[Rfam]
RNA sequence: UCUCUUUGUCAUUGUAAGUCGCUCUGGAUAAGGGCGUCUGCCAAAUGCCUUAAA
Numbered sequence: 001u002c003u004c005u006u007u008g009u010c011a012u013u014g015u016a017a018g019u020c021g022c023u024c025u026g027g028a029u030a031a032g033g034g035c036g037u038c039u040g041c042c043a044a045a046u047g048c049c050u051u052a053a054a
Base pairs, nucleotide, nucleotide: 013043014041015040016039020036021035022034023033024032025031

A member of the RNA family "UnaL2 LINE 3' element" from Denticeps clupeoides, 54 nucleotides long. The base pairs follow the family's consensus structure, which is taken from published work. About the family: The eel long interspersed element (LINE) UnaL2 and its partner short interspersed element (SINE) share a conserved 3' tail containing a stem-loop that is critical for their retrotransposition. Presumably, the first step of retrotransposition is the recognition of their 3' tails by UnaL2-encoded reverse transcriptase. Rfam classes the family as a cis-regulatory element. For this family Rfam cites "Solution structure of an RNA stem-loop derived from the 3' conserved region of eel LINE UnaL2" (Baba et al., RNA, 2004). The match comes from Rfam's covariance-model search (56 bits). The family has 30 seed sequences and 493,311 matches in Rfam 15.1. Rfam links the family to the GO term transposition, RNA-mediated.